[Rfam]
RNA: mir-31 microRNA precursor family
RNA sequence: AAUUGGAGAGGAGGCAAGAUGUUGGCAUAGCUGUUAUGUUUAGGACCUGCUAUGCUUACAUAUUGUCACCUUUCCUGUCU
Numbered sequence: 001a002a003u004u005g006g007a008g009a010g011g012a013g014g015c016a017a018g019a020u021g022u023u024g025g026c027a028u029a030g031c032u033g034u035u036a037u038g039u040u041u042a043g044g045a046c047c048u049g050c051u052a053u054g055c056u057u058a059c060a061u062a063u064u065g066u067c068a069c070c071u072u073u074c075c076u077g078u079c080u
Stems, first nucleotide, its partner, number of pairs: 005075007013067005019061003024056008